[Rfam]
RNA sequence: AGUUGCAAGUUUGAGGCCAUAGCAGAAGUGCUCGUGGCACGGCCCUAUCAGGUUCAACAGAUCUGCAAAUUCUGCU
Numbered sequence: 001a002g003u004u005g006c007a008a009g010u011u012u013g014a015g016g017c018c019a020u021a022g023c024a025g026a027a028g029u030g031c032u033c034g035u036g037g038c039a040c041g042g043c044c045c046u047a048u049c050a051g052g053u054u055c056a057a058c059a060g061a062u063c064u065g066c067a068a069a070u071u072c073u074g075c076u
Stems, first nucleotide, its partner, number of pairs: 013045001015044004021076007028040003049065006
Dot-bracket structure: ............[.[[[[..((((((((((.......)))]]]]]...((((((.....))))))....)))))))
A member of the RNA family "Mammalian CPEB3 ribozyme" from Alligator mississippiensis, 76 nucleotides long. On this family, see Teixeira et al., Nature 2004: "Autocatalytic RNA cleavage in the human beta-globin pre-mRNA promotes transcription termination". Pairs were carried over by alignment from the consensus structure, which is taken from published work. Rfam's curators write: The mammalian CPEB3 ribozyme is a self cleaving RNA located in the second intron of the CPEB3 gene which belongs to a family of genes regulating messenger RNA polyadenylation.